[Rfam]
RNA sequence: CAUCGAUACUAGCAAACUUGCCGAAAGGCAAGGACGCAAAGCCAAAGGGUCUAAGGUUCGCGAACGCGGACGAUUGACAGCCUGGCUGCCGAA
Numbered sequence: 001c002a003u004c005g006a007u008a009c010u011a012g013c014a015a016a017c018u019u020g021c022c023g024a025a026a027g028g029c030a031a032g033g034a035c036g037c038a039a040a041g042c043c044a045a046a047g048g049g050u051c052u053a054a055g056g057u058u059c060g061c062g063a064a065c066g067c068g069g070a071c072g073a074u075u076g077a078c079a080g081c082c083u084g085g086c087u088g089c090c091g092a093a
Stems, first nucleotide, its partner, number of pairs: 012037002017032006040087004046083003049078003056071006
About this RNA:
A member of the RNA family "c-di-GMP-I riboswitch aptamer" from Paenibacillus sp. UNC496MF, 93 nucleotides long. Its family is annotated with cyclic-di-GMP binding in the Gene Ontology. The match comes from Rfam's covariance-model search (71 bits). The organism belongs to Paenibacillus, within Bacteria.